[Rfam]
Shown here is a 145-nucleotide RNA sequence from Oceanobacillus indicireducens, a member of the family "FMN riboswitch aptamer (RFN element)". It scores 117 bits against the family's covariance model. The base pairs follow the family's consensus structure, which is taken from published work. Taxonomically the source falls in Oceanobacillus (Bacteria, Bacillati, Bacillota, Caryophanales).
RNA sequence: CAAUAACUUCGGGGCAAGGUGAAACUCCUUACCGGCGGUGUUCAAGUGUUAUGCUUGUAAGUCCGUGACCCGUACUCUUUAGGAGACGGUGGAGCUGGUGUAAUUCCAGCACCGACAGUUACAGUCUGGAUGGGAGAAGUUGUUG
Dot-bracket structure: ..((((((((......(((.......))).[[((((((......................[[))))...((................))....(((((.......)))))]])).(((.....]]))).......))))))))..
Numbered sequence: 001c002a003a004u005a006a007c008u009u010c011g012g013g014g015c016a017a018g019g020u021g022a023a024a025c026u027c028c029u030u031a032c033c034g035g036c037g038g039u040g041u042u043c044a045a046g047u048g049u050u051a052u053g054c055u056u057g058u059a060a061g062u063c064c065g066u067g068a069c070c071c072g073u074a075c076u077c078u079u080u081a082g083g084a085g086a087c088g089g090u091g092g093a094g095c096u097g098g099u100g101u102a103a104u105u106c107c108a109g110c111a112c113c114g115a116c117a118g119u120u121a122c123a124g125u126c127u128g129g130a131u132g133g134g135a136g137a138a139g140u141u142g143u144u145g
Stems, first nucleotide, its partner, number of pairs: 003143008017029003031125002033114002035066004061112002070089002094110005116128003